[Rfam]
RNA sequence: GGUCUGUGAUGGUGUUGGCAUGUAUUAUCUGAGCAGAAACCUGGAGAUGAUCAGUUCAGCUCUGGAAUUGCUCUGAGACCUG
Numbered sequence: 001g002g003u004c005u006g007u008g009a010u011g012g013u014g015u016u017g018g019c020a021u022g023u024a025u026u027a028u029c030u031g032a033g034c035a036g037a038a039a040c041c042u043g044g045a046g047a048u049g050a051u052c053a054g055u056u057c058a059g060c061u062c063u064g065g066a067a068u069u070g071c072u073c074u075g076a077g078a079c080c081u082g
Base pairs, nucleotide, nucleotide: 001080002079003078004077
RNA: Small nucleolar RNA SNORD45